[Rfam]
The record is a 99-nucleotide RNA sequence from Zea mays, which matches "Small nucleolar RNA snoR99" in Rfam. Its family is annotated with RNA processing and nucleolus in the Gene Ontology. The base pairs follow the family's consensus structure, which was predicted with WAR.

RNA sequence: GUGCCUGCAGGAUUAACAGGUCCCAACACUGCUACCAUUUUGCUCAUUUUGUCAUCUAUUACCCACAUUAUUAGCCAAUCAUUUAAAAAUGGGAAAUGU
Number, nucleotide and partner (000 for none) at each position: 001g000002u000003g000004c000005c000006u000007g000008c000009a000010g000011g000012a000013u000014u000015a000016a000017c000018a000019g000020g000021u000022c000023c000024c000025a000026a000027c000028a000029c000030u000031g000032c000033u000034a000035c092036c091037a090038u089039u088040u000041u000042g000043c000044u000045c000046a000047u000048u000049u000050u000051g079052u078053c000054a000055u000056c074057u073058a072059u000060u000061a000062c000063c000064c000065a000066c000067a000068u000069u000070a000071u000072u058073a057074g056075c000076c000077a000078a052079u051080c000081a000082u000083u000084u000085a000086a000087a000088a039089a038090u037091g036092g035093g000094a000095a000096a000097u000098g000099u000
NCBI's taxonomy places the organism under Eukaryota, Tracheophyta, Poaceae, Panicoideae, Zea. On this family, see Marker et al., Curr Biol 2002: "Experimental RNomics: identification of 140 candidates for small non-messenger RNAs in the plant Arabidopsis thaliana". Rfam classes the family as an H/ACA-box small nucleolar RNA.